[Rfam]
RNA sequence: GGCAGCUUUGUCAAAUUCAGUGCUUCCUCCUCGGUGGAUGCCACUGGCCAAAAUGGCUGCUACAGUGAAGGUGUAGUUCAUGGGCCCCACGGUGCUUCAACAUGGCUGCUGGGGAUAAACACGUGCUACACACAAAC
Numbered sequence: 001g002g003c004a005g006c007u008u009u010g011u012c013a014a015a016u017u018c019a020g021u022g023c024u025u026c027c028u029c030c031u032c033g034g035u036g037g038a039u040g041c042c043a044c045u046g047g048c049c050a051a052a053a054u055g056g057c058u059g060c061u062a063c064a065g066u067g068a069a070g071g072u073g074u075a076g077u078u079c080a081u082g083g084g085c086c087c088c089a090c091g092g093u094g095c096u097u098c099a100a101c102a103u104g105g106c107u108g109c110u111g112g113g114g115a116u117a118a119a120c121a122c123g124u125g126c127u128a129c130a131c132a133c134a135a136a137c
Base pairs, nucleotide, nucleotide: 002060003059004058005057018046019045020044021043022042023040025038026037027036073129074128075127076126077125078123085114086113087112088111089110
The record is a 137-nucleotide RNA sequence from Anabas testudineus, which matches "Small nucleolar RNA SNORA5" in Rfam. Clan: SNORA5 clan. The family has 6 seed sequences and 2,226 matches in Rfam 15.1. Lineage of the source: Eukaryota > Opisthokonta > Craniata > Teleostei > Anabas. Rfam's curators write: ACA5 is a member of the H/ACA class of snoRNA that guide the sites of modification of uridines to pseudouridines. Gene Ontology terms of the family: nucleolus and RNA processing. The family's RNA type in Rfam is H/ACA-box small nucleolar RNA.